[Rfam]
RNA sequence: CAGCAUGUUUGCAAGGGUAGUGGCUGGUUGUGGCAAUGGGAUCUUCAGCUGCACGCUAGAGCAACCUGCAGAGACUUUGACAGCUCAGGCCAGUCCAGUACAUGCACCUGCCACUCAUCUUUCCCAUAAUG
Numbered sequence: 001c002a003g004c005a006u007g008u009u010u011g012c013a014a015g016g017g018u019a020g021u022g023g024c025u026g027g028u029u030g031u032g033g034c035a036a037u038g039g040g041a042u043c044u045u046c047a048g049c050u051g052c053a054c055g056c057u058a059g060a061g062c063a064a065c066c067u068g069c070a071g072a073g074a075c076u077u078u079g080a081c082a083g084c085u086c087a088g089g090c091c092a093g094u095c096c097a098g099u100a101c102a103u104g105c106a107c108c109u110g111c112c113a114c115u116c117a118u119c120u121u122u123c124c125c126a127u128a129a130u131g
Stems, first nucleotide, its partner, number of pairs: 012038001017034002020031003068124001070122004083111002086104002089101001
RNA: Small nucleolar RNA SNORA44